[Rfam]
RNA sequence: GUUGCAUGCCCUUUUUGGGCGUUUCCUCCCUAGACUCGGGCCGUCCUUCGGGGCGGUCUUUUUUUUAUUCUCC
Numbered sequence: 001g002u003u004g005c006a007u008g009c010c011c012u013u014u015u016u017g018g019g020c021g022u023u024u025c026c027u028c029c030c031u032a033g034a035c036u037c038g039g040g041c042c043g044u045c046c047u048u049c050g051g052g053g054c055g056g057u058c059u060u061u062u063u064u065u066u067a068u069u070c071u072c073c
Stems, first nucleotide, its partner, number of pairs: 008020004039058008
The record is a 73-nucleotide RNA sequence from Lichenibacterium minor, which matches "Makes More Granules Regulator RNA (mmgR)" in Rfam. Pairs were carried over by alignment from the consensus structure. Rfam describes the family as follows. SuhB later renamed mmgR (makes more granules regulator) was a putative non-coding RNA found multiple times in the Agrobacterium tumefaciens genome and related alpha-proteobacteria. The family's RNA type in Rfam is small RNA. A reference for the family is Corbino et al. (2005), "Evidence for a second class of S-adenosylmethionine riboswitches and other regulatory RNA motifs in alpha-proteobacteria", Genome Biol.